About this RNA: Y RNA: a 96-nucleotide sequence from Prolemur simus. The source organism's lineage runs through Eukaryota, Tetrapoda, Mammalia, Euarchontoglires and Prolemur.

[Rfam]
RNA sequence: GGCUGGUCUGAGUGCAGUCGUGUUUACAGCUAAUCGAUCACAACCAGUUACAGAUCCCUUUGUUCCUUCUCCACUACUUCAGUUGACCAGCCUAAA
Numbered sequence: 001g002g003c004u005g006g007u008c009u010g011a012g013u014g015c016a017g018u019c020g021u022g023u024u025u026a027c028a029g030c031u032a033a034u035c036g037a038u039c040a041c042a043a044c045c046a047g048u049u050a051c052a053g054a055u056c057c058c059u060u061u062g063u064u065c066c067u068u069c070u071c072c073a074c075u076a077c078u079u080c081a082g083u084u085g086a087c088c089a090g091c092c093u094a095a096a
Stems, first nucleotide, its partner, number of pairs: 001092008010084002014080001016075003020071001028064003032060002
The match comes from Rfam's covariance-model search (52 bits).
Rfam describes the family as follows. Y RNAs are components of the Ro ribonucleoprotein particle (Ro RNP), in association with Ro60 and La proteins. The Y RNAs and Ro60 and La proteins are well conserved, but the function of the Ro RNP is not known. In humans the RNA component can be one of four small RNAs -- hY1, hY3, hY4 and hY5. These small RNAs are predicted to fold into a conserved secondary structure containing three stem structures.
The base pairs follow the family's consensus structure, which is taken from published work.